[Rfam]
RNA sequence: ACCCGAAAGGGCAAACCCUUCGCGAGAGGGGGACGCAAAGCUACGGGACUCCUGCGGAUCUGGGAGUCAGCCGGGCCACCGAAG
Numbered sequence: 001a002c003c004c005g006a007a008a009g010g011g012c013a014a015a016c017c018c019u020u021c022g023c024g025a026g027a028g029g030g031g032g033a034c035g036c037a038a039a040g041c042u043a044c045g046g047g048a049c050u051c052c053u054g055c056g057g058a059u060c061u062g063g064g065a066g067u068c069a070g071c072c073g074g075g076c077c078a079c080c081g082a083a084g
Stems, first nucleotide, its partner, number of pairs: 003081001011036002016031006034070001040076003044073003047068006

Source information: This 84-nucleotide RNA sequence from Deinococcus koreensis belongs to the Rfam family "c-di-GMP-I-GGC riboswitch aptamer".